[Rfam]
RNA: Group II catalytic intron D1-D4-6
Organism: Leucothrix pacifica
RNA sequence: AAAGUCCCCGUCGGGUAAGGUCUAACCAGCCACCCGUAUCGAGUGUUGCGCCUGUGGCGGAGCUUGCGGAUCAAUUCAGUUUUUCCAGUGGUUGCGUACCACAGCAAGUGAACAAGACAGGUGAAGCGUACACAGAGAAACUAAUAGGCCAUAGGGGUUAUCGUGACCCUGAAGUGCUGAUAUCUCUCCGAGAAUGUGAGUCCUGACAGACGAGGUUUGUAACACAACCGAAGUCCAUGCGAAGAAAUCGGGUUUGGUGAGAUUGCUGUGAGCGGAGUUCUCGAGCC
Numbered sequence: 001a002a003a004g005u006c007c008c009c010g011u012c013g014g015g016u017a018a019g020g021u022c023u024a025a026c027c028a029g030c031c032a033c034c035c036g037u038a039u040c041g042a043g044u045g046u047u048g049c050g051c052c053u054g055u056g057g058c059g060g061a062g063c064u065u066g067c068g069g070a071u072c073a074a075u076u077c078a079g080u081u082u083u084u085c086c087a088g089u090g091g092u093u094g095c096g097u098a099c100c101a102c103a104g105c106a107a108g109u110g111a112a113c114a115a116g117a118c119a120g121g122u123g124a125a126g127c128g129u130a131c132a133c134a135g136a137g138a139a140a141c142u143a144a145u146a147g148g149c150c151a152u153a154g155g156g157g158u159u160a161u162c163g164u165g166a167c168c169c170u171g172a173a174g175u176g177c178u179g180a181u182a183u184c185u186c187u188c189c190g191a192g193a194a195u196g197u198g199a200g201u202c203c204u205g206a207c208a209g210a211c212g213a214g215g216u217u218u219g220u221a222a223c224a225c226a227a228c229c230g231a232a233g234u235c236c237a238u239g240c241g242a243a244g245a246a247a248u249c250g251g252g253u254u255u256g257g258u259g260a261g262a263u264u265g266c267u268g269u270g271a272g273c274g275g276a277g278u279u280c281u282c283g284a285g286c287c
Base pairs, nucleotide, nucleotide: 012036013035014034015033019031020030021029023260025258026257039136040135043133044132045131046130047128048127049123050122051121052120053119054118055117059113182281186277187276188275189274190273203272204271206269207268208267209235210234211233214229215228216227217226246264247263248262249261